[Rfam]
Rfam assigns this 72-nucleotide RNA sequence from Pantoea sp. GM01 to the family "osmY RNA".
Rfam classes the family as a small RNA.
Pairs were carried over by alignment from the consensus structure, which is taken from published work.
RNA sequence: UCAGCAACGCCGUUCGUUGCUGGCGCAUCCGCGAUAACGGAUGAGUUAACUGAUAGAAGGAUGAUAUCGAUG
Numbered sequence: 001u002c003a004g005c006a007a008c009g010c011c012g013u014u015c016g017u018u019g020c021u022g023g024c025g026c027a028u029c030c031g032c033g034a035u036a037a038c039g040g041a042u043g044a045g046u047u048a049a050c051u052g053a054u055a056g057a058a059g060g061a062u063g064a065u066a067u068c069g070a071u072g
Stems, first nucleotide, its partner, number of pairs: 002022008026043006